[Rfam]
Source information:
The family of this 38-nucleotide sequence from Photobacterium angustum is "JUMPstart RNA". Rfam's curators put it in the seed alignment. It is annotated as a cis-regulatory element.
RNA sequence: AAGCACAUGAGGAGCUAUAACCUUAGGGCGGUAGCAUU
Numbered sequence: 001a002a003g004c005a006c007a008u009g010a011g012g013a014g015c016u017a018u019a020a021c022c023u024u025a026g027g028g029c030g031g032u033a034g035c036a037u038u
Stems, first nucleotide, its partner, number of pairs: 008025005